[Rfam]
A member of the RNA family "Small nucleolar RNA snoR17" from Brassica rapa, 98 nucleotides long. The sequence is in the family's curated seed alignment. Taxonomically the source falls in Brassica rapa (Eukaryota, eudicotyledons, malvids, Brassiceae). The literature on the family includes a 2001 paper in RNA by Brown et al., "Multiple snoRNA gene clusters from Arabidopsis". The family's RNA type in Rfam is C/D-box small nucleolar RNA. Its family is annotated with nucleolus and RNA processing in the Gene Ontology.
RNA sequence: UAUAGUGAUGAAUAUAAUCACAAUUGUCACUACCUCUGAGGCACAUUUUAUUUUCGUUUUGUAUCUGACCCUGGUGAUUGCAUCUAAGAACGGUGAUA
Numbered sequence: 001u002a003u004a005g006u007g008a009u010g011a012a013u014a015u016a017a018u019c020a021c022a023a024u025u026g027u028c029a030c031u032a033c034c035u036c037u038g039a040g041g042c043a044c045a046u047u048u049u050a051u052u053u054u055c056g057u058u059u060u061g062u063a064u065c066u067g068a069c070c071c072u073g074g075u076g077a078u079u080g081c082a083u084c085u086a087a088g089a090a091c092g093g094u095g096a097u098a
Base pairs, nucleotide, nucleotide: 004031005030006029007028008027009026077097078096079095080094